[Rfam]
RNA sequence: GGUCAUGAGUCCCAGCGCGAAGCCCCGGCUGGCUGGGCGGCAACCCUCCACCCUCGGUGGGGUGCCCCGGGUGAGGACCUGGACGCGUGCCGACCGGCCGCGUCAAGCGCGGGUU
Number, nucleotide and partner (000 for none) at each position: 001g079002g078003u077004c076005a000006u000007g000008a000009g038010u000011c037012c036013c035014a034015g033016c032017g000018c000019g000020a000021a030022g029023c000024c000025c000026c000027g000028g000029c022030u021031g000032g016033c015034u014035g013036g012037g011038c009039g066040g065041c064042a000043a000044c062045c061046c060047u000048c057049c056050a000051c000052c000053c000054u000055c000056g049057g048058u000059g000060g046061g045062g044063u000064g041065c040066c039067c000068c000069g000070g000071g000072u000073g000074a000075g000076g004077a003078c002079c001080u000081g000082g104083a103084c102085g101086c100087g099088u000089g098090c097091c096092g000093a000094c000095c000096g091097g090098c089099c087100g086101c085102g084103u083104c082105a000106a000107g000108c000109g000110c000111g000112g000113g000114u000115u000
Shown here is a 115-nucleotide RNA from Janibacter cremeus, a member of the family "SAM (S-adenosyl methionine) riboswitch aptamer".
Gene Ontology terms of the family: S-adenosylmethionine metabolic process and regulation of gene expression.
Pairs were carried over by alignment from the consensus structure, which is taken from published work.
Rfam describes the family as follows. SAM-IV is a mRNA element that regulates gene expression via direct sensing of S-adenosylmethionine (SAM or AdoMet).
A search with the family's covariance model found it, with a score of 106 bits.
The organism belongs to Janibacter, within Bacteria.